Record summary
This 68-nucleotide RNA from Mycolicibacterium doricum belongs to the Rfam family "ASdes TB sRNA". It is annotated as a small RNA. Rfam 15.1 lists 1,192 matches to the family in 825 species. It scores 64 bits against the family's covariance model. A reference for the family is Arnvig and Young (2009), "Identification of small RNAs in Mycobacterium tuberculosis", Mol Microbiol. Pairs were carried over by alignment from the consensus structure, which is taken from published work.

RNA sequence: UUGGCGGCCGGGUCCACCUCGCGGGUGACCACGAGGUAGUUGCGCAGCGCGACGGCGUGCAGGUGCUC
Numbered sequence: 001u002u003g004g005c006g007g008c009c010g011g012g013u014c015c016a017c018c019u020c021g022c023g024g025g026u027g028a029c030c031a032c033g034a035g036g037u038a039g040u041u042g043c044g045c046a047g048c049g050c051g052a053c054g055g056c057g058u059g060c061a062g063g064u065g066c067u068c
Stems, first nucleotide, its partner, number of pairs: 005062001008059001011030003015027004035056001037054001040052005